Source information:
The family of this 52-nucleotide sequence from Sus scrofa is "mir-1302 microRNA precursor family". The match comes from Rfam's covariance-model search (68 bits). On this family, see Morin et al., Genome Res 2008: "Application of massively parallel sequencing to microRNA profiling and discovery in human embryonic stem cells".
RNA sequence: UGUAAAAUAUAAGUAUGUCCCGUGCAGUAUUUGGGAUAUACUUAUACUAAAA
Numbered sequence: 001u002g003u004a005a006a007a008u009a010u011a012a013g014u015a016u017g018u019c020c021c022g023u024g025c026a027g028u029a030u031u032u033g034g035g036a037u038a039u040a041c042u043u044a045u046a047c048u049a050a051a052a
Stems, first nucleotide, its partner, number of pairs: 006048001008046005014040003018036004022031001